Description
Rfam assigns this 56-nucleotide sequence from Roseburia hominis to the family "pemK RNA". Pairs were carried over by alignment from the consensus structure, which is taken from published work. It scores 39 bits against the family's covariance model. It is annotated as a cis-regulatory element. NCBI's taxonomy places the organism under Bacteria, Clostridia, Lachnospiraceae, Roseburia, Roseburia hominis.
RNA sequence: AUAAUGAUACUUCCGGCUUAGUCCGGUCAGAUAAGAUGACGGUGCGAUACCGAUGU
Dot-bracket structure: ...........(((((......))))(((.......)))(((.......))))...
Numbered sequence: 001a002u003a004a005u006g007a008u009a010c011u012u013c014c015g016g017c018u019u020a021g022u023c024c025g026g027u028c029a030g031a032u033a034a035g036a037u038g039a040c041g042g043u044g045c046g047a048u049a050c051c052g053a054u055g056u
Stems, first nucleotide, its partner, number of pairs: 012053001013026004027039003040052003